The record is a 73-nucleotide sequence from Rattus norvegicus, which matches "mir-628 microRNA precursor family" in Rfam. Taxonomically the source falls in Rattus (Eukaryota, Sarcopterygii, Rodentia, Muroidea). The literature on the family includes a 2010 paper in BMC Res Notes by Brameier, "Genome-wide comparative analysis of microRNAs in three non-human primates". The base pairs follow the family's consensus structure, which was predicted with RNAalifold. Rfam links the family to the GO terms RISC complex and miRNA-mediated post-transcriptional gene silencing. It is one of the family's seed sequences.
[Rfam]
RNA sequence: CGCUUCCUCAUGCUGACAUAUUUACGAGAGGGUGCAAUUCAUAACCUUCUGGUAAGAGUGGCAGUUGAGGGGU
Dot-bracket structure: .....(((...((((.(((.(((((.(((((((..........))))))).))))).))).))))....))).